[Rfam]
RNA sequence: AUACCUACCUGGGCGGGGACUAUGGACUUAUGUCCUAGGAUGGUAGGCUCCAUUGCACUUUUGGGAGGGAUGCCAGCCUAACAUCUUCCCAAAGAGGAAGAGUGUACGUCAUAAUAGUAGGGGUCUGCGUUCGAGCAACCCCUG
Numbered sequence: 001a002u003a004c005c006u007a008c009c010u011g012g013g014c015g016g017g018g019a020c021u022a023u024g025g026a027c028u029u030a031u032g033u034c035c036u037a038g039g040a041u042g043g044u045a046g047g048c049u050c051c052a053u054u055g056c057a058c059u060u061u062u063g064g065g066a067g068g069g070a071u072g073c074c075a076g077c078c079u080a081a082c083a084u085c086u087u088c089c090c091a092a093a094g095a096g097g098a099a100g101a102g103u104g105u106a107c108g109u110c111a112u113a114a115u116a117g118u119a120g121g122g123g124u125c126u127g128c129g130u131u132c133g134a135g136c137a138a139c140c141c142c143u144g
Base pairs, nucleotide, nucleotide: 012110013109014108015107016036017035018034019033020032023030024029037079038078039077041076043073044072045071048068049067050065051064081105082104083103084101085100086099088097089096119143120142121141122140123139126137127136128135
This 144-nucleotide sequence from Chenopodium quinoa belongs to the Rfam family "U1 spliceosomal RNA". The family is grouped with related families in Rfam's "U1 clan". Rfam's curators write: U1 is a small nuclear RNA (snRNA) component of the spliceosome (involved in pre-mRNA splicing). Its 5' end forms complementary base pairs with the 5' splice junction, thus defining the 5' donor site of an intron. There are significant differences in sequence and secondary structure between metazoan and yeast U1 snRNAs, the latter being much longer (568 nucleotides as compared to 164 nucleotides in human). It is annotated as a spliceosomal small nuclear RNA. Taxonomically the source falls in Chenopodium (Eukaryota, Viridiplantae, Euphyllophyta, eudicotyledons).